[Rfam]
RNA sequence: UGGCACCCAAUGUGGCUUGAGAACAGGGGAUUUCAUGAGGGACGCUGUUUGUGAAGUGUGCAAAAGUUAAGAUAGAGGAUCAGUCAAUGUGGGAACCUGCUGCGUUUUCCAGGCCUCGGUAAGUGAACAGCGACUAUGGGUCAGGAAAUAAGUCAGCAUGAAAUAUUUGUUGAAAGUUUAAGUAAGGCUUUAAAGACAUGAGUAUAGUUCCCUAUUGAAGGAACUAUUGAUCAGAGGUGAUAGAAAAGGGCUGGUGAUGCCCUU
Numbered sequence: 001u002g003g004c005a006c007c008c009a010a011u012g013u014g015g016c017u018u019g020a021g022a023a024c025a026g027g028g029g030a031u032u033u034c035a036u037g038a039g040g041g042a043c044g045c046u047g048u049u050u051g052u053g054a055a056g057u058g059u060g061c062a063a064a065a066g067u068u069a070a071g072a073u074a075g076a077g078g079a080u081c082a083g084u085c086a087a088u089g090u091g092g093g094a095a096c097c098u099g100c101u102g103c104g105u106u107u108u109c110c111a112g113g114c115c116u117c118g119g120u121a122a123g124u125g126a127a128c129a130g131c132g133a134c135u136a137u138g139g140g141u142c143a144g145g146a147a148a149u150a151a152g153u154c155a156g157c158a159u160g161a162a163a164u165a166u167u168u169g170u171u172g173a174a175a176g177u178u179u180a181a182g183u184a185a186g187g188c189u190u191u192a193a194a195g196a197c198a199u200g201a202g203u204a205u206a207g208u209u210c211c212c213u214a215u216u217g218a219a220g221g222a223a224c225u226a227u228u229g230a231u232c233a234g235a236g237g238u239g240a241u242a243g244a245a246a247a248g249g250g251c252u253g254g255u256g257a258u259g260c261c262c263u264u
Stems, first nucleotide, its partner, number of pairs: 006029003012024002034041001077117002080113002088104005124143003128140001131138002149192003152188003199239002206225006246264006
This 264-nucleotide sequence from Octodon degus belongs to the Rfam family "Mason-Pfizer monkey virus packaging signal".
The source organism's lineage runs through Eukaryota, Eumetazoa, Rodentia, Hystricomorpha and Octodon.